[Rfam]
RNA sequence: AGCCACUGAUGAAAUCUGAUUCUGCCAAAUGAAUUACUGUGAUAUUUCAAUUUCCGUUCCAUUUUUCUCUGAGGUU
Numbered sequence: 001a002g003c004c005a006c007u008g009a010u011g012a013a014a015u016c017u018g019a020u021u022c023u024g025c026c027a028a029a030u031g032a033a034u035u036a037c038u039g040u041g042a043u044a045u046u047u048c049a050a051u052u053u054c055c056g057u058u059c060c061a062u063u064u065u066u067c068u069c070u071g072a073g074g075u076u
Base pairs, nucleotide, nucleotide: 001076002075003074004073